Rfam assigns this 80-nucleotide sequence from Trogon melanurus to the family "Small nucleolar RNA SNORD87". For this family Rfam cites "U87 RNA, a novel C/D box small nucleolar RNA from mammalian cells" (Gogolevskaya et al., Gene, 2002). Rfam links the family to the GO terms RNA processing and nucleolus.
[Rfam]
RNA sequence: GCUGGCAUAAUGAUGAUGAAUCUUUUGCCGUUUACCCAACUGAAUUUUGUGAUGAGUAAUAUUGUAUCUGAUGUGCCAGC
Numbered sequence: 001g002c003u004g005g006c007a008u009a010a011u012g013a014u015g016a017u018g019a020a021u022c023u024u025u026u027g028c029c030g031u032u033u034a035c036c037c038a039a040c041u042g043a044a045u046u047u048u049g050u051g052a053u054g055a056g057u058a059a060u061a062u063u064g065u066a067u068c069u070g071a072u073g074u075g076c077c078a079g080c
Stems, first nucleotide, its partner, number of pairs: 001080007
Dot-bracket structure: (((((((..................................................................)))))))